[Rfam]
RNA sequence: UCGACAGAAGUGCAUCGGCAGGAGUGGAGGACCCGAGCAAGACGGGUCGCCGGGACGGAUGUCCGCGAGACGCGGACGAUCGUGCCGAGCAGCCCUUGGGGUGAAGCCGUGGUGACACGGCCGGGCAACUUCGCCAGCCCGAAUCCGACAGGUCAUCCUUCACAGGCGGCUGACGAAGGGUUG
Numbered sequence: 001u002c003g004a005c006a007g008a009a010g011u012g013c014a015u016c017g018g019c020a021g022g023a024g025u026g027g028a029g030g031a032c033c034c035g036a037g038c039a040a041g042a043c044g045g046g047u048c049g050c051c052g053g054g055a056c057g058g059a060u061g062u063c064c065g066c067g068a069g070a071c072g073c074g075g076a077c078g079a080u081c082g083u084g085c086c087g088a089g090c091a092g093c094c095c096u097u098g099g100g101g102u103g104a105a106g107c108c109g110u111g112g113u114g115a116c117a118c119g120g121c122c123g124g125g126c127a128a129c130u131u132c133g134c135c136a137g138c139c140c141g142a143a144u145c146c147g148a149c150a151g152g153u154c155a156u157c158c159u160u161c162a163c164a165g166g167c168g169g170c171u172g173a174c175g176a177a178g179g180g181u182u183g
Stems, first nucleotide, its partner, number of pairs: 001022002024163006034098004099146003107120004123140004
Dot-bracket structure: ((..................)).((((((....((((.........................................................))))(((.....((((......))))..((((..........))))...)))...........))))))....................

A member of the RNA family "c-di-AMP riboswitch aptamer (ydaO/yuaA leader)" from Streptomyces seoulensis, 183 nucleotides long. From the family's description: This family represents a conserved RNA structure found upstream of the ydaO and yuaA genes in Bacillus subtilis and related genes in other bacteria. Taxonomically the source falls in Streptomyces (Bacteria, Bacillati, Actinomycetota, Streptomycetaceae).